[Rfam]
Nucleotides: 143
Base pairs, nucleotide, nucleotide: 001054002053003052004051005050006049007048008047014041015040016039017038018037020035021034022033067135068134069133070132071131072130079123080122081121082120083119084118085117086116087115
Number, partner (000 for none) and nucleotide at each position: 001054c002053g003052a004051c005050g006049u007048c008047g009000g010000u011000u012000c013000c014041u015040c016039c017038u018037c019000c020035u021034g022033g023000c024000u025000g026000c027000a028000g029000u030000g031000a032000a033022u034021c035020a036000g037018g038017a039016g040015g041014a042000u043000u044000u045000u046000a047008c048007g049006a050005c051004g052003u053002c054001g055000c056000a057000g058000a059000g060000a061000a062000a063000u064000c065000u066000g067135g068134g069133u070132c071131u072130u073000u074000u075000u076000c077000a078000c079123c080122c081121g082120g083119g084118a085117a086116g087115c088000u089000u090000c091000a092000g093000g094000c095000u096000g097000u098000a099000g100000c101000c102000a103000a104000a105000a106000c107000u108000u109000a110000a111000a112000a113000c114000u115087g116086c117085u118084u119083c120082c121081u122080g123079g124000u125000u126000u127000u128000g129000c130072g131071g132070g133069a134068c135067c136000c137000a138000a139000c140000a141000a142000a143000g